[Rfam]
RNA sequence: UAAUUUGUCUAGGGCAGAUCCUCAUAUAGUUAUAACACACCCACACCUGACUGCUCAGAAUCACAUAUAAAAACUACUAUGUGAACAACUAACUUUGAAGAU
Numbered sequence: 001u002a003a004u005u006u007g008u009c010u011a012g013g014g015c016a017g018a019u020c021c022u023c024a025u026a027u028a029g030u031u032a033u034a035a036c037a038c039a040c041c042c043a044c045a046c047c048u049g050a051c052u053g054c055u056c057a058g059a060a061u062c063a064c065a066u067a068u069a070a071a072a073a074c075u076a077c078u079a080u081g082u083g084a085a086c087a088a089c090u091a092a093c094u095u096u097g098a099a100g101a102u
Stems, first nucleotide, its partner, number of pairs: 006101001008098002012094001014089001019084001023081003027076005
RNA: MIR480 microRNA precursor family
Organism: Populus deltoides